[Rfam]
RNA: S15-Flavobacteria ribosomal protein leader
RNA sequence: UAUAUUUGCCGCUUGGAAGAAAAGCUUCCAUGUACAUAAAAAUCAUUUAAAUAAAUAUUGGAAUG
Numbered sequence: 001u002a003u004a005u006u007u008g009c010c011g012c013u014u015g016g017a018a019g020a021a022a023a024g025c026u027u028c029c030a031u032g033u034a035c036a037u038a039a040a041a042a043u044c045a046u047u048u049a050a051a052u053a054a055a056u057a058u059u060g061g062a063a064u065g
Base pairs, nucleotide, nucleotide: 014030015029016028017027018026019025